[Rfam]
RNA sequence: UUCUUAUUAAGAGUUAUGGUAGAGAGUUAGCUCAGUGACCAUACACCAACCUGCAACAAUGUAAGGUGGUAAUGCUAACAUCGAUGAGGA
Numbered sequence: 001u002u003c004u005u006a007u008u009a010a011g012a013g014u015u016a017u018g019g020u021a022g023a024g025a026g027u028u029a030g031c032u033c034a035g036u037g038a039c040c041a042u043a044c045a046c047c048a049a050c051c052u053g054c055a056a057c058a059a060u061g062u063a064a065g066g067u068g069g070u071a072a073u074g075c076u077a078a079c080a081u082c083g084a085u086g087a088g089g090a
Stems, first nucleotide, its partner, number of pairs: 001090008013044001015043004022033003027078004045070004050066002052063004074082001
Dot-bracket structure: ((((((((....(.((((...(((..[[[[)))......)))))((((.((((((....)))).))))))...(]]]]...)))))))))
A member of the RNA family "SAM riboswitch aptamer (S box leader)" from Variimorphobacter saccharofermentans, 90 nucleotides long. Pairs were carried over by alignment from the consensus structure, which is taken from published work.